[Rfam]
RNA sequence: GGGUCCGGCGGGCCACGAACUCCCUUAAAGAACCGGGAGAAAGAACCUCCCACCCACCCACCCUUUCCCCUCGUCACCCGUACGGGUGACGAGCUUGCGGGUUUGAGAAGCGGGCGGUUACGUUCACCGCGACAAUCGCAGACAAGUACGGCCCCCGGCCGGGACUGGCAUCCCGAUCGAGGGCCUGACCGAUCAGGAAGAAGCGACCUUCCCA
Numbered sequence: 001g002g003g004u005c006c007g008g009c010g011g012g013c014c015a016c017g018a019a020c021u022c023c024c025u026u027a028a029a030g031a032a033c034c035g036g037g038a039g040a041a042a043g044a045a046c047c048u049c050c051c052a053c054c055c056a057c058c059c060a061c062c063c064u065u066u067c068c069c070c071u072c073g074u075c076a077c078c079c080g081u082a083c084g085g086g087u088g089a090c091g092a093g094c095u096u097g098c099g100g101g102u103u104u105g106a107g108a109a110g111c112g113g114g115c116g117g118u119u120a121c122g123u124u125c126a127c128c129g130c131g132a133c134a135a136u137c138g139c140a141g142a143c144a145a146g147u148a149c150g151g152c153c154c155c156c157g158g159c160c161g162g163g164a165c166u167g168g169c170a171u172c173c174c175g176a177u178c179g180a181g182g183g184c185c186u187g188a189c190c191g192a193u194c195a196g197g198a199a200g201a202a203g204c205g206a207c208c209u210u211c212c213c214a
Stems, first nucleotide, its partner, number of pairs: 007193001009191002017068001074089006097128001100125002150185005156179002161174004196212005
RNA: Streptomyces sRNA 4677